[Rfam]
RNA: RT-18 RNA
RNA sequence: CGGCCCUUGCCGGAGAUAUGCCGGAGGGACACGGUUUAGUACACGCCGGAAGGCGCGAUGGAAAUACCGUGAGGCAACAAGGAG
Number, nucleotide and partner (000 for none) at each position: 001c012002g011003g010004c009005c000006c000007u000008u000009g004010c003011c002012g001013g000014a000015g000016a000017u000018a000019u000020g075021c074022c073023g000024g000025a000026g000027g000028g000029a000030c071031a070032c069033g068034g067035u066036u000037u000038a000039g000040u000041a000042c060043a059044c055045g054046c053047c000048g000049g000050a000051a000052g000053g046054c045055g044056c000057g000058a000059u043060g042061g000062a000063a000064a000065u000066a035067c034068c033069g032070u031071g030072a000073g022074g021075c020076a000077a000078c000079a000080a000081g000082g000083a000084g000